[Rfam]
RNA: U8 small nucleolar RNA
Organism: Odocoileus virginianus
Nucleotides: 134
Base pairs, nucleotide, nucleotide: 024046028043029042030041031040032039033038075093076092078090081086098122099121100120101119102118103117104116
Number, partner (000 for none) and nucleotide at each position: 001000u002000c003000a004000u005000c006000a007000a008000g009000a010000a011000g012000c013000a014000u015000a016000a017000u018000c019000c020000u021000u022000a023000c024046c025000c026000a027000u028043u029042c030041u031040u032039c033038c034000c035000u036000u037000g038033g039032g040031a041030g042029g043028g044000c045000a046024g047000a048000a049000u050000a051000g052000a053000a054000c055000a056000u057000u058000a059000u060000g061000a062000c063000u064000u065000g066000a067000g068000c069000u070000g071000g072000c073000a074000u075093g076092a077000c078090u079000c080000a081086u082000a083000a084000u085000u086081a087000g088000g089000a090078g091000c092076u093075c094000u095000g096000c097000a098122u099121a100120a101119u102118c103117a104116g105000g106000a107000g108000u109000u110000a111000c112000a113000a114000c115000a116104u117103u118102g119101a120100u121099u122098g123000c124000u125000c126000c127000u128000g129000u130000u131000u132000g133000a134000u